RNA sequence: GAGGAAAAGAAGAAGCACCCGCUUCUCACCUGAUUGACACAGAUUCCAAGUAGUUAACAGGUAUUACGUGAACAUUUUAGGUCUUACUAUGUUAUCGUAAGUGUGGGUGAUUAUUCAUCCACACUUUUUUAUUUGG
Number, nucleotide and partner (000 for none) at each position: 001g000002a000003g000004g000005a000006a000007a000008a000009g000010a000011a026012g025013a024014a023015g022016c021017a000018c000019c000020c000021g016022c015023u014024u013025c012026u011027c000028a062029c061030c060031u000032g000033a000034u000035u000036g055037a054038c053039a051040c050041a000042g000043a000044u000045u000046c000047c000048a000049a000050g040051u039052a000053g038054u037055u036056a000057a000058c000059a000060g030061g029062u028063a000064u000065u000066a000067c000068g000069u000070g000071a000072a000073c000074a000075u000076u000077u000078u000079a000080g000081g000082u000083c000084u000085u000086a000087c000088u000089a000090u000091g000092u000093u000094a000095u000096c000097g000098u000099a000100a000101g000102u123103g122104u121105g120106g119107g118108u117109g116110a115111u000112u000113a000114u000115u110116c109117a108118u107119c106120c105121a104122c103123a102124c000125u000126u000127u000128u000129u000130u000131a000132u000133u000134u000135g000136g000

A member of the RNA family "Ribosomal protein L20 leader" from Bacillus sp. B1-b2, 136 nucleotides long. The match comes from Rfam's covariance-model search (79 bits). This family is a putative r-protein leader autoregulatory structure found in B. subtilis and other low-GC Gram-positive bacteria. A reference for the family is Zengel and Lindahl (1994), "Diverse mechanisms for regulating ribosomal protein synthesis in Escherichia coli", Prog Nucleic Acid Res Mol Biol. By type it is a cis-regulatory leader.